Overview: Rfam assigns this 110-nucleotide RNA sequence from Pristionchus pacificus to the family "SL2 RNA". From the family's description: This family represents SL2 RNA. SL2 RNA is involved in trans splicing in lower eukaryotes. Trans-splicing is a form of RNA processing. The acquisition of a spliced leader from a SL RNA is a intra-molecular reaction which precisely joins exons derived from separately transcribed RNAs. The source organism's lineage runs through Eukaryota, Metazoa, Protostomia, Chromadorea and Pristionchus. The family has 30 seed sequences and 598 matches in Rfam 15.1. The family's consensus secondary structure is taken from published work. The family's RNA type in Rfam is non-coding RNA gene. For this family Rfam cites "trans splicing of polycistronic Caenorhabditis elegans pre-mRNAs: analysis of the SL2 RNA" (Evans and Blumenthal, Mol Cell Biol, 2000). Clan: SL clan.

[Rfam]
RNA sequence: GGUUUAUACCCAGUAUCUCAAGGUACGCUUGGGCUUCUGACCAGAUAUUCUCUGUGUUAGAGAACCAACAGUUUUUGGGCAGCUCUAGAGGGGAACCCCAGAGCAACAAU
Numbered sequence: 001g002g003u004u005u006a007u008a009c010c011c012a013g014u015a016u017c018u019c020a021a022g023g024u025a026c027g028c029u030u031g032g033g034c035u036u037c038u039g040a041c042c043a044g045a046u047a048u049u050c051u052c053u054g055u056g057u058u059a060g061a062g063a064a065c066c067a068a069c070a071g072u073u074u075u076u077g078g079g080c081a082g083c084u085c086u087a088g089a090g091g092g093g094a095a096c097c098c099c100a101g102a103g104c105a106a107c108a109a110u
Stems, first nucleotide, its partner, number of pairs: 008035001009032002013028002016025001018023001038059004042054004084108001086106001088104001092099002